[Rfam]
RNA sequence: ACAGCCCAAAAGCCGCGAGGCUCACGCCGCACAGGACGCCUUGUGCCUCCAUAGUCGUGAGCGGGCUAAGGUCUGAGUAUUCGGGUACUUGAGACAUCGUCCGGUACAAGUCCCACUCGACCGACUCUAGCUGGGUCCGGUUCCAAGAACUGAGCGGUGCACCAGAGAAUCGCUCGCCAUUAAUACGUCAUGCCUUCAAUCCCAAAGAUCCCACUGGUGCAGUAAUUCAAGCUGGCUGAUGGGGGGAGGGAGCGAUGGCGGCUUUGGAACACGCCGUUGGGACUGGGCGGAUCUCUUCGUCGUCUCAACUCCCACUUAUCGUGUCUCCCGGUGAUGCUGCUACGUGCUAAUCACCAAGAAGGCUAGAUGCAGAAAUGGUCUAGUCAUAUUGCCGUGCACUCUGCGCUGGCGGGGGAUGGACGAGGGCGCUGAGAGUCGGGCGACGAAUGUCCGUCCUUGAGCGCACUUCGCGGCGCGCAUAUGGGGUCGAACCCUCUGCGCAACUCGAUUCAGACUACUCUUGUGCUGU
Number, nucleotide and partner (000 for none) at each position: 001a529002c528003a527004g526005c000006c000007c523008a522009a521010a000011a000012g474013c473014c472015g471016c470017g469018a468019g000020g062021c061022u060023c059024a058025c000026g000027c000028c000029g000030c000031a000032c000033a000034g050035g049036a048037c000038g046039c045040c000041u000042u000043g000044u000045g039046c038047c000048u036049c035050c034051a000052u000053a000054g000055u000056c000057g000058u024059g023060a022061g021062c020063g000064g000065g000066c000067u000068a000069a000070g000071g000072u000073c513074u512075g511076a510077g509078u000079a000080u000081u000082c000083g283084g000085g000086u000087a000088c000089u000090u000091g000092a000093g000094a000095c000096a000097u000098c000099g000100u000101c000102c000103g000104g000105u000106a000107c000108a000109a000110g000111u000112c000113c000114c000115a000116c000117u000118c000119g000120a000121c000122c000123g137124a136125c135126u134127c133128u000129a000130g000131c000132u000133g127134g126135g125136u124137c123138c152139g151140g150141u149142u148143c147144c000145a000146a000147g143148a142149a141150c140151u139152g138153a278154g277155c276156g275157g274158u273159g272160c000161a000162c000163c000164a000165g000166a000167g000168a000169a000170u000171c000172g000173c000174u000175c261176g000177c000178c000179a000180u000181u000182a000183a000184u000185a000186c000187g000188u000189c000190a000191u000192g000193c000194c000195u000196u000197c000198a000199a000200u000201c000202c000203c000204a000205a000206a000207g000208a000209u000210c000211c000212c000213a000214c000215u000216g000217g000218u000219g000220c000221a000222g000223u000224a000225a000226u000227u000228c000229a000230a000231g000232c000233u000234g000235g000236c000237u000238g000239a000240u000241g000242g000243g000244g000245g000246g000247a000248g000249g000250g000251a000252g000253c000254g000255a000256u000257g000258g000259c000260g000261g175262c000263u000264u000265u000266g000267g000268a000269a000270c000271a000272c159273g158274c157275c156276g155277u154278u153279g000280g000281g000282a000283c083284u000285g000286g000287g000288c000289g000290g000291a000292u000293c000294u000295c000296u000297u000298c000299g000300u000301c000302g000303u000304c000305u000306c000307a000308a000309c000310u000311c000312c000313c000314a000315c000316u000317u000318a000319u000320c000321g000322u000323g000324u000325c000326u000327c000328c000329c000330g000331g000332u000333g000334a000335u000336g000337c000338u000339g000340c000341u000342a000343c000344g000345u000346g000347c000348u000349a000350a000351u000352c000353a000354c000355c000356a000357a000358g000359a000360a000361g000362g000363c000364u000365a000366g000367a000368u000369g000370c000371a000372g000373a000374a000375a000376u000377g000378g000379u000380c000381u000382a000383g000384u000385c000386a000387u000388a000389u000390u000391g000392c000393c000394g000395u000396g000397c000398a000399c000400u000401c000402u000403g000404c000405g000406c000407u000408g000409g000410c000411g000412g000413g000414g000415g000416a000417u000418g000419g000420a000421c000422g000423a000424g000425g000426g000427c000428g000429c000430u000431g000432a000433g000434a000435g000436u000437c000438g000439g000440g000441c000442g000443a000444c000445g000446a000447a000448u000449g000450u000451c000452c000453g000454u000455c000456c000457u000458u000459g000460a000461g000462c000463g000464c000465a000466c000467u000468u018469c017470g016471c015472g014473g013474c012475g501476c500477g499478c498479a497480u000481a495482u000483g000484g000485g000486g000487u000488c000489g000490a000491a000492c000493c000494c000495u481496c000497u479498g478499c477500g476501c475502a000503a000504c000505u000506c000507g000508a000509u077510u076511c075512a074513g073514a000515c000516u000517a000518c000519u000520c000521u009522u008523g007524u000525g000526c004527u003528g002529u001